[Rfam]
RNA sequence: UAACUGAACGGGAGAAGCUGUUACGCUAUAUGUGCUUAGUAAUCAUAAGCGUAUAGCUUUUCCCCUUGGUUG
Number, nucleotide and partner (000 for none) at each position: 001u000002a000003a070004c069005u068006g067007a066008a000009c000010g064011g063012g062013a000014g060015a059016a000017g000018c056019u055020g054021u053022u000023a000024c000025g000026c049027u048028a000029u047030a046031u045032g044033u000034g000035c000036u000037u000038a000039g000040u000041a000042a000043u000044c032045a031046u030047a029048a027049g026050c000051g000052u000053a021054u020055a019056g018057c000058u000059u015060u014061u000062c012063c011064c010065c000066u007067u006068g005069g004070u003071u000072g000
RNA: mir-965 microRNA precursor family
Organism: Bicyclus anynana